Description
This 164-nucleotide RNA from Lacticaseibacillus saniviri belongs to the Rfam family "M-box riboswitch aptamer (ykoK leader)".
[Rfam]
RNA sequence: GGUGCUUUCCGUUAGGUGAGGCUCCUAUACGAACAACGCUACUGCUCAGAAACAUCGAGAGAUGCCAAUUGAGUCAACUGGAACUGUCUAUCAAGGCUUUUUCUAACGUAGCUGAAGCUUGCUUCUAGGCGUAUAGUGCUAAAACUAAACGAUUGGGAUGCAAA
Numbered sequence: 001g002g003u004g005c006u007u008u009c010c011g012u013u014a015g016g017u018g019a020g021g022c023u024c025c026u027a028u029a030c031g032a033a034c035a036a037c038g039c040u041a042c043u044g045c046u047c048a049g050a051a052a053c054a055u056c057g058a059g060a061g062a063u064g065c066c067a068a069u070u071g072a073g074u075c076a077a078c079u080g081g082a083a084c085u086g087u088c089u090a091u092c093a094a095g096g097c098u099u100u101u102u103c104u105a106a107c108g109u110a111g112c113u114g115a116a117g118c119u120u121g122c123u124u125c126u127a128g129g130c131g132u133a134u135a136g137u138g139c140u141a142a143a144a145c146u147a148a149a150c151g152a153u154u155g156g157g158a159u160g161c162a163a164a
Base pairs, nucleotide, nucleotide: 005160007158008157009156010155011150012149013094015146016145017144020140021139022138025136026135027134028133029132030131031130038112039111040110041109042108044074045073046072047071048070053064054063055062056061080103081102082101083100086097087096088095114125115124116123
The base pairs follow the family's consensus structure.
The match comes from Rfam's covariance-model search (122 bits).
M-box riboswitch, also know as ykoK leader is described as a metaloregulatory RNA that sense divalent metals and function as a genetic control element of genes related to divalent metal transport in bacteria. It was first reported upstream of the B.subtilis ykoK gene and genes with related functions in other bacteria.
The family has 159 seed sequences and 1,095 matches in Rfam 15.1.